[Rfam]
The family of this 129-nucleotide sequence from Aeromicrobium camelliae is "ALIL pseudoknot".
NCBI's taxonomy places the organism under Bacteria, Actinomycetes, Propionibacteriales, Nocardioidaceae, Aeromicrobium.
Rfam 15.1 lists 2,146 matches to the family in 1,098 species.
The base pairs follow the family's consensus structure, which is taken from published work.
It is annotated as a cis-regulatory element.

RNA sequence: GGCUUUCUUUGCGGCGGAGCUCGACCGCCCCAACAGGUACUGAUCGACUACAUCGACGAACACCGCGAGGAGUUCGGGGUCGAGCCGAUCUGUCGCGUGCUGCGCGAGCACGGGAUCCAGAUCGCCCCG
Numbered sequence: 001g002g003c004u005u006u007c008u009u010u011g012c013g014g015c016g017g018a019g020c021u022c023g024a025c026c027g028c029c030c031c032a033a034c035a036g037g038u039a040c041u042g043a044u045c046g047a048c049u050a051c052a053u054c055g056a057c058g059a060a061c062a063c064c065g066c067g068a069g070g071a072g073u074u075c076g077g078g079g080u081c082g083a084g085c086c087g088a089u090c091u092g093u094c095g096c097g098u099g100c101u102g103c104g105c106g107a108g109c110a111c112g113g114g115a116u117c118c119a120g121a122u123c124g125c126c127c128c129g
Stems, first nucleotide, its partner, number of pairs: 013029005075129005086124002089121004